[Rfam]
RNA sequence: UCUAGAACUCCGGAUAUGGGUAAAAUUCUAAGCGAUGUUUGAAUUUGGAUUACGGGACGAUUUCGACUUCUCUUUUGUGGCCAAACUUUGAAUUUGAAAACGGCAGAUUUGGGUCUUACACUAUUCAUGAACAAUGUAGGCCUAUUUCUUAGCUUUCCAUC
Number, nucleotide and partner (000 for none) at each position: 001u000002c000003u159004a000005g157006a156007a155008c152009u151010c000011c000012g149013g148014a147015u000016a145017u144018g143019g142020g141021u139022a000023a137024a000025a135026u000027u134028c000029u000030a000031a000032g000033c000034g000035a128036u127037g126038u000039u000040u000041g000042a000043a000044u000045u000046u000047g124048g000049a122050u000051u120052a000053c000054g117055g116056g115057a114058c113059g110060a109061u000062u107063u106064c000065g104066a000067c103068u102069u000070c000071u000072c000073u097074u096075u000076u000077g093078u092079g000080g000081c000082c000083a000084a000085a000086c000087u000088u000089u000090g000091a000092a078093u077094u000095u000096g074097a073098a000099a000100a000101c000102g068103g067104c065105a000106g063107a062108u000109u060110u059111g000112g000113g058114u057115c056116u055117u054118a000119c000120a051121c000122u049123a000124u047125u000126c037127a036128u035129g000130a000131a000132c000133a000134a027135u025136g000137u023138a000139g021140g000141c020142c019143u018144a017145u016146u000147u014148c013149u012150u000151a009152g008153c000154u000155u007156u006157c005158c000159a003160u000161c000
RNA: MIR2912 microRNA precursor family